The family of this 131-nucleotide sequence from Lentilactobacillus parafarraginis is "Ribosomal protein L20 leader". Taxonomically the source falls in Lentilactobacillus parafarraginis (Bacteria, Bacillati, Bacilli, Lactobacillaceae). This family is a putative r-protein leader autoregulatory structure found in B. subtilis and other low-GC Gram-positive bacteria.
[Rfam]
RNA sequence: ACAUGAAAGCAGAAGCAACCCGCUUCUCGCCUUAGUGAAGUUAUUCGCUGGGCAUGAUAUCGAGUAAGAACCUGUUCGAUAGGUUCUUUAAUGAUGGCGGGUGCAGUUUGUACCCGCCAUCUUUCUGCUUG
Numbered sequence: 001a002c003a004u005g006a007a008a009g010c011a012g013a014a015g016c017a018a019c020c021c022g023c024u025u026c027u028c029g030c031c032u033u034a035g036u037g038a039a040g041u042u043a044u045u046c047g048c049u050g051g052g053c054a055u056g057a058u059a060u061c062g063a064g065u066a067a068g069a070a071c072c073u074g075u076u077c078g079a080u081a082g083g084u085u086c087u088u089u090a091a092u093g094a095u096g097g098c099g100g101g102u103g104c105a106g107u108u109u110g111u112a113c114c115c116g117c118c119a120u121c122u123u124u125c126u127g128c129u130u131g
Base pairs, nucleotide, nucleotide: 011027012026013025014024015023016022029053030052031051035048036047037046038045039044096118097117098116099115100114101113102112103111104110105109
By type it is a cis-regulatory leader. It scores 66 bits against the family's covariance model.